[Rfam]
RNA sequence: GCAUGGCUAUGGAUUUAUGGUGGGAUCUAUCCCAUGAUCUCUUCAUAGUGUACUCCAUGCAAAAUCAAAAUCUGCUUCGAACCAUUGACUGGCUUAAAACUAAUAGGCCUGCUUCACUGAUAUGGGCAGUACAAUU
Numbered sequence: 001g002c003a004u005g006g007c008u009a010u011g012g013a014u015u016u017a018u019g020g021u022g023g024g025a026u027c028u029a030u031c032c033c034a035u036g037a038u039c040u041c042u043u044c045a046u047a048g049u050g051u052a053c054u055c056c057a058u059g060c061a062a063a064a065u066c067a068a069a070a071u072c073u074g075c076u077u078c079g080a081a082c083c084a085u086u087g088a089c090u091g092g093c094u095u096a097a098a099a100c101u102a103a104u105a106g107g108c109c110u111g112c113u114u115c116a117c118u119g120a121u122a123u124g125g126g127c128a129g130u131a132c133a134a135u136u
Stems, first nucleotide, its partner, number of pairs: 001060004005055002008052001015048006022041003026036001072129006083119002088114001091109005
This 136-nucleotide sequence from Chiloscyllium punctatum belongs to the Rfam family "Small nucleolar RNA SNORA42/SNORA80 family". The organism belongs to Chiloscyllium, within Eukaryota. Rfam's curators write: The members of this family belong to the H/ACA class of snoRNAs that guide the sites of modification of uridines to pseudouridines.